[Rfam]
RNA: U4atac minor spliceosomal RNA
Organism: Dufourea novaeangliae
RNA sequence: UCCAUCCUUGUCUAUGGGGAGCAAAGUGUUCAGUGAUCGGCUAGUGAGAAUGCUGUUGCUGAAACCCAUUAUUAACUAAACAACUGCAUCCACAUUUUCUUAUGUGUGAUGCAAUUUUUGGAGGC
Number, nucleotide and partner (000 for none) at each position: 001u000002c000003c000004a000005u020006c019007c018008u017009u016010g000011u000012c000013u000014a000015u000016g009017g008018g007019g006020a005021g059022c058023a057024a056025a054026g053027u052028g051029u050030u049031c048032a000033g000034u000035g000036a000037u000038c044039g000040g000041c000042u000043a000044g038045u000046g000047a000048g031049a030050a029051u028052g027053c026054u025055g000056u024057u023058g022059c021060u000061g000062a000063a000064a000065c000066c000067c000068a000069u000070u000071a000072u000073u000074a000075a000076c000077u000078a000079a000080a000081c000082a000083a000084c000085u000086g112087c111088a110089u109090c108091c106092a105093c104094a103095u102096u000097u000098u000099c000100u000101u000102a095103u094104g093105u092106g091107u000108g090109a089110u088111g087112c086113a000114a000115u000116u000117u000118u000119u000120g000121g000122a000123g000124g000125c000